A member of the RNA family "Small nucleolar RNA snoR2/U65" from Amborella trichopoda, 148 nucleotides long. The source organism's lineage runs through Eukaryota, Viridiplantae, Tracheophyta, Magnoliopsida and Amborella. A search with the family's covariance model found it, with a score of 54 bits. Rfam classes the family as an H/ACA-box small nucleolar RNA. The base pairs follow the family's consensus structure, which was predicted with WAR.
RNA sequence: GUUUGAAUGAGCUCCUAUCGUUGUAGGAUAUAAUAAUACAAGAGUUACAUAUUAAAGGGGAUUAGUUUCUCUUAUUUCGCAUUUUGAUAGGAUCCUGUGGAUCUCAAUUUUCCAUUAGUCCACAGAACCGGUUUUUGCGAUUACACUC
Numbered sequence: 001g002u003u004u005g006a007a008u009g010a011g012c013u014c015c016u017a018u019c020g021u022u023g024u025a026g027g028a029u030a031u032a033a034u035a036a037u038a039c040a041a042g043a044g045u046u047a048c049a050u051a052u053u054a055a056a057g058g059g060g061a062u063u064a065g066u067u068u069c070u071c072u073u074a075u076u077u078c079g080c081a082u083u084u085u086g087a088u089a090g091g092a093u094c095c096u097g098u099g100g101a102u103c104u105c106a107a108u109u110u111u112c113c114a115u116u117a118g119u120c121c122a123c124a125g126a127a128c129c130g131g132u133u134u135u136u137g138c139g140a141u142u143a144c145a146c147u148c
Stems, first nucleotide, its partner, number of pairs: 002057003006053003010046005077140005090129002095125003099121004